[Rfam]
RNA: Small nucleolar RNA SNORA70
RNA sequence: GUGCAGCUAAUUAAGCCGAUCAAGUCCCUUUCCCCAUGGGGACUUUGGUGUGCAAUGGUUGCAAACAGCAGCCUCCUUGGUAGUGUAUGUAGCCUAUUGUCUAUAUGGGUUACCUCAAGGGACCUUGGAAACAGUU
Numbered sequence: 001g002u003g004c005a006g007c008u009a010a011u012u013a014a015g016c017c018g019a020u021c022a023a024g025u026c027c028c029u030u031u032c033c034c035c036a037u038g039g040g041g042a043c044u045u046u047g048g049u050g051u052g053c054a055a056u057g058g059u060u061g062c063a064a065a066c067a068g069c070a071g072c073c074u075c076c077u078u079g080g081u082a083g084u085g086u087a088u089g090u091a092g093c094c095u096a097u098u099g100u101c102u103a104u105a106u107g108g109g110u111u112a113c114c115u116c117a118a119g120g121g122a123c124c125u126u127g128g129a130a131a132c133a134g135u136u
Stems, first nucleotide, its partner, number of pairs: 002054004019049004025042004079124003090112006